[Rfam]
RNA: mraW RNA
RNA sequence: CACUCGCCGUACCGCGAGCUCUCCAGCCGCUUGCGACUGUCCUGACACCUCUUCCCCGGUGCCAGGGCCCGAGCGGAUGGGGAGCUGGCGGUACGGCGGCUGCGAC
Numbered sequence: 001c002a003c004u005c006g007c008c009g010u011a012c013c014g015c016g017a018g019c020u021c022u023c024c025a026g027c028c029g030c031u032u033g034c035g036a037c038u039g040u041c042c043u044g045a046c047a048c049c050u051c052u053u054c055c056c057c058g059g060u061g062c063c064a065g066g067g068c069c070c071g072a073g074c075g076g077a078u079g080g081g082g083a084g085c086u087g088g089c090g091g092u093a094c095g096g097c098g099g100c101u102g103c104g105a106c
Stems, first nucleotide, its partner, number of pairs: 010093006018085002021082005027076007039068006046061003
Dot-bracket structure: .........((((((..((.(((((.(((((((.....((((((.(((..........))).)))))).))))))).))))).))..)))))).............